[Rfam]
RNA sequence: UUGGGAACAACAUCCUGAUGCUGUCUGGGUGUGUGAAGUAGAACUCCAGCAUCAGUGAUUUUGUUGCCAA
Numbered sequence: 001u002u003g004g005g006a007a008c009a010a011c012a013u014c015c016u017g018a019u020g021c022u023g024u025c026u027g028g029g030u031g032u033g034u035g036a037a038g039u040a041g042a043a044c045u046c047c048a049g050c051a052u053c054a055g056u057g058a059u060u061u062u063g064u065u066g067c068c069a070a
Base pairs, nucleotide, nucleotide: 006065007064008063009062010061012059013058014057015055016054017053018052019051020050021049022048023047
Shown here is a 70-nucleotide RNA from Liparis tanakae, a member of the family "mir-338 microRNA precursor family". The match comes from Rfam's covariance-model search (73 bits). Its family is annotated with miRNA-mediated post-transcriptional gene silencing and RISC complex in the Gene Ontology.